[Rfam]
Rfam assigns this 62-nucleotide RNA sequence from Brevibacillus centrosporus to the family "RAGATH-18 RNA".

RNA sequence: CCUGUGGAGUGUCACACGAAUGCGAGUAGCCUUAAGCAAAAGCAGACACAAAGAAGCAGGAA
Numbered sequence: 001c002c003u004g005u006g007g008a009g010u011g012u013c014a015c016a017c018g019a020a021u022g023c024g025a026g027u028a029g030c031c032u033u034a035a036g037c038a039a040a041a042g043c044a045g046a047c048a049c050a051a052a053g054a055a056g057c058a059g060g061a062a
Stems, first nucleotide, its partner, number of pairs: 001060005009049005021044003029037002
From the family's description: Actinobacteria, Firmicutes, Fusobacteria, Thermotogae (1 example). The base pairs follow the family's consensus structure, which is taken from published work. Lineage of the source: Bacteria > Bacillati > Bacillota > Paenibacillaceae > Brevibacillus.